Shown here is a 65-nucleotide RNA from Microcebus murinus, a member of the family "Selenocysteine insertion sequence 1". Rfam classes the family as a cis-regulatory element. The incorporation of selenocysteine into a protein sequence is directed by an in-frame UGA codon (usually a stop codon) within the coding region of the mRNA. Selenoprotein mRNAs contain a conserved secondary structure in the 3' UTR that is required for the distinction of UGA stop from UGA selenocysteine. The source organism's lineage runs through Eukaryota, Vertebrata, Tetrapoda, Mammalia and Microcebus. The family's consensus secondary structure is taken from published work. It scores 45 bits against the family's covariance model.

RNA sequence: CCGGCACCCAUGACGGUCUGCCUAUAAACCUACUGAGGGUGGGGCAGACCCGAGAACCCGGCGUG
Numbered sequence: 001c002c003g004g005c006a007c008c009c010a011u012g013a014c015g016g017u018c019u020g021c022c023u024a025u026a027a028a029c030c031u032a033c034u035g036a037g038g039g040u041g042g043g044g045c046a047g048a049c050c051c052g053a054g055a056a057c058c059c060g061g062c063g064u065g
Stems, first nucleotide, its partner, number of pairs: 001065001004062002015050009029038003